[Rfam]
RNA sequence: CUCUUAUCGAGAGUCGGGCGAGGGAUUGGCCUUUUGACCCCGACAGCAACCGACCGUAAUUCCAUUGCGAAAUGGGGCGCAGCAUGAUUCAAGCGCCUAUGCAGGGCACGGUGCUAAUUCCAUCAGACUUAUUUCUGAGAGAUAAGAG
Numbered sequence: 001c002u003c004u005u006a007u008c009g010a011g012a013g014u015c016g017g018g019c020g021a022g023g024g025a026u027u028g029g030c031c032u033u034u035u036g037a038c039c040c041c042g043a044c045a046g047c048a049a050c051c052g053a054c055c056g057u058a059a060u061u062c063c064a065u066u067g068c069g070a071a072a073u074g075g076g077g078c079g080c081a082g083c084a085u086g087a088u089u090c091a092a093g094c095g096c097c098u099a100u101g102c103a104g105g106g107c108a109c110g111g112u113g114c115u116a117a118u119u120c121c122a123u124c125a126g127a128c129u130u131a132u133u134u135c136u137g138a139g140a141g142a143u144a145a146g147a148g
Base pairs, nucleotide, nucleotide: 001148002147003146004145005144006143007142008141013044015042016041017040018039022032023031024030027122028121029120045115046114047113048112050111051110052107054105055104119140124137125136126135127134
Dot-bracket structure: ((((((((....(.((((...(((..[[[)))......)))).)((((.(((.((................................................)).)..))))))...(]]].((((......))))..)))))))))

The record is a 148-nucleotide RNA from Bacillus gobiensis, which matches "SAM riboswitch aptamer (S box leader)" in Rfam. The match comes from Rfam's covariance-model search (71 bits). The organism belongs to Bacillus, within Bacteria. Pairs were carried over by alignment from the consensus structure, which is taken from published work. Rfam describes the family as follows. The SAM riboswitch is found upstream of a number of genes which code for proteins involved in methionine or cysteine biosynthesis in Gram-positive bacteria.